The family of this 106-nucleotide RNA from Nyssa sinensis is "Small nucleolar RNA Z279/snoR105/snoR108". The base pairs follow the family's consensus structure, which was predicted with PFOLD. This family includes the plant snoRNAs known as Z279, snoR105 and snoR108. Clan: snoU13 clan. On this family, see Marker et al., Curr Biol 2002: "Experimental RNomics: identification of 140 candidates for small non-messenger RNAs in the plant Arabidopsis thaliana".
RNA sequence: GGGAUGUGAUGAGUGGUCAAUACUCGCAAUAAAAUAUGCGAGAUGAGUGUCCGCCCAACGCCUGUUACGACAAUUGGGGCACCCUCAUUUCAACCAAUCUGAUCCC
Numbered sequence: 001g002g003g004a005u006g007u008g009a010u011g012a013g014u015g016g017u018c019a020a021u022a023c024u025c026g027c028a029a030u031a032a033a034a035u036a037u038g039c040g041a042g043a044u045g046a047g048u049g050u051c052c053g054c055c056c057a058a059c060g061c062c063u064g065u066u067a068c069g070a071c072a073a074u075u076g077g078g079g080c081a082c083c084c085u086c087a088u089u090u091c092a093a094c095c096a097a098u099c100u101g102a103u104c105c106c
Stems, first nucleotide, its partner, number of pairs: 001106004014096004023042005045084001047082003050078002062076001064074002